RNA: Vault RNA
Organism: Thalassarche chlororhynchos
RNA sequence: GGACCGGCUUUAGCCCAGCGGUUACUCCGGGGUGUCACAAACCCGUUGUGUCUCGCCCCACGGGGGGCUCGAGCCCGCGGGCACACGUGGGACAUUUU
Number, nucleotide and partner (000 for none) at each position: 001g000002g093003a000004c091005c090006g000007g088008c000009u000010u000011u000012a000013g082014c081015c080016c079017a000018g078019c077020g076021g075022u000023u000024a000025c000026u073027c000028c071029g070030g069031g000032g000033u000034g000035u000036c000037a000038c000039a000040a000041a000042c000043c000044c000045g000046u000047u000048g000049u000050g000051u000052c000053u000054c000055g000056c000057c000058c000059c000060a000061c000062g000063g000064g000065g000066g000067g000068c000069u030070c029071g028072a000073g026074c000075c021076c020077g019078c018079g016080g015081g014082c013083a000084c000085a000086c000087g000088u007089g000090g005091g004092a000093c002094a000095u000096u000097u000098u000